[Rfam]
RNA: Actinobacteria sRNA Ms_IGR-5
Organism: Nocardioides szechwanensis
RNA sequence: ACACGGGAAAGGAGGUGGUCCGAAGAAUGAAUUCUUUGAGGACGCGUGAGGUGGCUGCCCGCUAGCAGCCCAGCAUCAUGUCGGGUGGAAGCGCCCGACAGGCUGCUGACGAAUUCCUAGCAGCUACCCGACCCGCAGGUGAUCCGGGAUCACGUCCCCCGGAGCGGUCUCCUCCCGGAGGCCACGCCUGCGGGUCGCUGCUA
Dot-bracket structure: .............((((((..................................))))))((.((((.(((...(......................)...))).)))).)).................(((((((((((((.((((((.........)))))).....................)))))))))))))......